RNA sequence: GGCGGUUCUCAGUGACGCACCCCGUAAUUGGGCUCCUUUCUCUCUGGUUCCAGGUGCGGCACCCGAGAACUGCA
Numbered sequence: 001g002g003c004g005g006u007u008c009u010c011a012g013u014g015a016c017g018c019a020c021c022c023c024g025u026a027a028u029u030g031g032g033c034u035c036c037u038u039u040c041u042c043u044c045u046g047g048u049u050c051c052a053g054g055u056g057c058g059g060c061a062c063c064c065g066a067g068a069a070c071u072g073c074a
Base pairs, nucleotide, nucleotide: 002073003072005070006069007068008067009066010065012062013061014060016058018056019055020054021053024051026049027048028047029046030045031044032043
RNA: mir-9223 microRNA precursor family
Organism: Myotis myotis